[Rfam]
RNA sequence: UCUCAGUGUCCAAAGUGCUGUUUGUGCAGGUAGCUCACUCUCUAGCCCUACUGCAAAAUCAGCACUUCAUGACACAGAGA
Numbered sequence: 001u002c003u004c005a006g007u008g009u010c011c012a013a014a015g016u017g018c019u020g021u022u023u024g025u026g027c028a029g030g031u032a033g034c035u036c037a038c039u040c041u042c043u044a045g046c047c048c049u050a051c052u053g054c055a056a057a058a059u060c061a062g063c064a065c066u067u068c069a070u071g072a073c074a075c076a077g078a079g080a
Stems, first nucleotide, its partner, number of pairs: 004077001006075002009072002013067008022058002025055003029052005
RNA: mir-17 microRNA precursor family